[Rfam]
RNA sequence: GUGCAGGGCAUUUAGGGUUCCACUGGCCAUCCCGUCAGGUUCGGUCCGAGAAAUGCCACCUGGCGGGCCAAUUCUCGCGGGGCACACGGCGGGCCAAAAUCCCGGGAGGC
Numbered sequence: 001g002u003g004c005a006g007g008g009c010a011u012u013u014a015g016g017g018u019u020c021c022a023c024u025g026g027c028c029a030u031c032c033c034g035u036c037a038g039g040u041u042c043g044g045u046c047c048g049a050g051a052a053a054u055g056c057c058a059c060c061u062g063g064c065g066g067g068c069c070a071a072u073u074c075u076c077g078c079g080g081g082g083c084a085c086a087c088g089g090c091g092g093g094c095c096a097a098a099a100u101c102c103c104g105g106g107a108g109g110c
Base pairs, nucleotide, nucleotide: 007057008056009055010054011053012052015047016046020044021043022041023038024037025036026035027034059082060081061080063078064077065076066075067074085105087108091103092102093101

The record is a 110-nucleotide sequence from Poseidonocella pacifica, which matches "Guanidine-I riboswitch aptamer" in Rfam. This family represents a conserved RNA structure found upstream of the ykkC and yxkD genes in Bacillus subtilis and related genes in other bacteria. It scores 74 bits against the family's covariance model. Lineage of the source: Bacteria > Pseudomonadati > Pseudomonadota > Alphaproteobacteria > Poseidonocella.